[Rfam]
Rfam assigns this 80-nucleotide RNA sequence from Corymbia citriodora to the family "Small nucleolar RNA R16". It is annotated as a C/D-box small nucleolar RNA. Its family is annotated with nucleolus and RNA processing in the Gene Ontology. Lineage of the source: Eukaryota > Streptophyta > Embryophyta > rosids > Corymbia citriodora.

RNA sequence: GAAGGCAGAUGAUGCAUAAAAAAGUUAUAUGCACUGAAAUUUCAUGUGGGUUACUUUUCCGCUUAUUGUCUGAUGCCUAU
Numbered sequence: 001g002a003a004g005g006c007a008g009a010u011g012a013u014g015c016a017u018a019a020a021a022a023a024g025u026u027a028u029a030u031g032c033a034c035u036g037a038a039a040u041u042u043c044a045u046g047u048g049g050g051u052u053a054c055u056u057u058u059c060c061g062c063u064u065a066u067u068g069u070c071u072g073a074u075g076c077c078u079a080u
Stems, first nucleotide, its partner, number of pairs: 003078005